[Rfam]
RNA sequence: CUGCCAUAACAACCAUAGUAGAAGCACUCACGUUGUGGCCCUGUCAGAUUCUAAUGAAUCUGCAAAUUCUGCU
Numbered sequence: 001c002u003g004c005c006a007u008a009a010c011a012a013c014c015a016u017a018g019u020a021g022a023a024g025c026a027c028u029c030a031c032g033u034u035g036u037g038g039c040c041c042u043g044u045c046a047g048a049u050u051c052u053a054a055u056g057a058a059u060c061u062g063c064a065a066a067u068u069c070u071g072c073u
Base pairs, nucleotide, nucleotide: 013038014037017073018072019071020070021069022068023067024036025035026034045062046061047060048059049058050057051056
A member of the RNA family "Mammalian CPEB3 ribozyme" from Crocodylus porosus, 73 nucleotides long. NCBI's taxonomy places the organism under Eukaryota, Craniata, Euteleostomi, Amniota, Crocodylus. About the family: The mammalian CPEB3 ribozyme is a self cleaving RNA located in the second intron of the CPEB3 gene which belongs to a family of genes regulating messenger RNA polyadenylation.